Background: UnaL2 LINE 3' element: a 54-nucleotide sequence from Sparus aurata.
RNA sequence: UGUAUGAAUUACUGUAAGUCGCUUUGGACAAAAGCAUCUGCUAAAUGCUCUAAA
Numbered sequence: 001u002g003u004a005u006g007a008a009u010u011a012c013u014g015u016a017a018g019u020c021g022c023u024u025u026g027g028a029c030a031a032a033a034g035c036a037u038c039u040g041c042u043a044a045a046u047g048c049u050c051u052a053a054a
Base pairs, nucleotide, nucleotide: 013043014041015040016039021035022034023033024032025031

NCBI's taxonomy places the organism under Eukaryota, Opisthokonta, Actinopteri, Euteleosteomorpha, Sparus. It scores 61 bits against the family's covariance model. The eel long interspersed element (LINE) UnaL2 and its partner short interspersed element (SINE) share a conserved 3' tail containing a stem-loop that is critical for their retrotransposition. Presumably, the first step of retrotransposition is the recognition of their 3' tails by UnaL2-encoded reverse transcriptase. The solution structure of a 17-nucleotide RNA derived from the 3' tail of UnaL2 was determined by NMR.